[Rfam]
RNA sequence: UUAUGAAGGCAGCAUGGUUGUGGGCACGGAAAUUGAUCGUAUUGGGUCAACAUGUCUGCUCUCACUGAUGAAAACAAUGAUUUGAGGGCCUGGUUGUAACCCACAUUU
Number, nucleotide and partner (000 for none) at each position: 001u000002u000003a000004u000005g000006a000007a000008g000009g000010c000011a000012g025013c024014a000015u022016g000017g000018u000019u000020g000021u000022g015023g000024g013025c012026a000027c000028g000029g000030a000031a000032a000033u000034u000035g000036a000037u000038c000039g000040u000041a000042u000043u000044g091045g090046g089047u088048c087049a000050a000051c000052a000053u000054g081055u080056c079057u000058g075059c000060u073061c000062u000063c000064a000065c000066u000067g000068a000069u000070g000071a000072a000073a060074a000075c058076a000077a000078u000079g056080a055081u054082u000083u000084g000085a000086g000087g048088g047089c046090c045091u044092g000093g000094u000095u000096g000097u000098a000099a000100c000101c000102c000103a000104c000105a000106u000107u000108u000

The record is a 108-nucleotide sequence from Cajanus cajan, which matches "Small nucleolar RNA snoR100" in Rfam. Lineage of the source: Eukaryota > Mesangiospermae > rosids > Phaseoleae > Cajanus. The family's consensus secondary structure was predicted with WAR. Gene Ontology terms of the family: RNA processing and nucleolus.